[Rfam]
RNA sequence: AAGCAUUACAGGUCUUUCAGAAUUUGUCUACUAGGUUUUCUGGUCCUCACCAGAGGACUGGCCCCC
Numbered sequence: 001a002a003g004c005a006u007u008a009c010a011g012g013u014c015u016u017u018c019a020g021a022a023u024u025u026g027u028c029u030a031c032u033a034g035g036u037u038u039u040c041u042g043g044u045c046c047u048c049a050c051c052a053g054a055g056g057a058c059u060g061g062c063c064c065c066c
Base pairs, nucleotide, nucleotide: 034063035062036061037056038055039054040053041052042051043050044049

Rfam assigns this 66-nucleotide RNA sequence from Prolemur simus to the family "U7 small nuclear RNA". Pairs were carried over by alignment from the consensus structure, which was predicted with PFOLD.